A member of the RNA family "Eukaryotic small subunit ribosomal RNA" from Zootermopsis nevadensis, 161 nucleotides of a longer RNA.
[Rfam]
RNA sequence: CCGCCCGUCGCUGCCCGGGACUGAGUUGCUUCGAGAAGUGUGGGGACCGUUGCUGGAGGGUUUCGGCUCGACGGCGAUGGAAACCGCAUUAAUCGCAGUGGCUUGAACCGGGCAAAAGUCGUAACAAGGUGCGAUUAGGAGAACCUGACCGCGGAUCAUUG
Numbered sequence: 001c002c003g004c005c006c007g008u009c010g011c012u013g014c015c016c017g018g019g020a021c022u023g024a025g026u027u028g029c030u031u032c033g034a035g036a037a038g039u040g041u042g043g044g045g046a047c048c049g050u051u052g053c054u055g056g057a058g059g060g061u062u063u064c065g066g067c068u069c070g071a072c073g074g075c076g077a078u079g080g081a082a083a084c085c086g087c088a089u090u091a092a093u094c095g096c097a098g099u100g101g102c103u104u105g106a107a108c109c110g111g112g113c114a115a116a117a118g119u120c121g122u123a124a125c126a127a128g129g130u131g132c133g134a135u136u137a138g139g140a141g142a143a144c145c146u147g148a149c150c151g152c153g154g155a156u157c158a159u160u161g
Stems, first nucleotide, its partner, number of pairs: 001128001003125001006121002009118001012114007021105001023104008032095003037090007047080009058069004130153004135148005
Dot-bracket structure: (.(..((.(..(((((((..(.((((((((.(((..(((((((...(((((((((..((((....))))..)))))))))...)))))))..))).)))))))))..)))))))...).))...)..).((((.(((((....))))).))))........
Its Rfam clan is "SSU clan".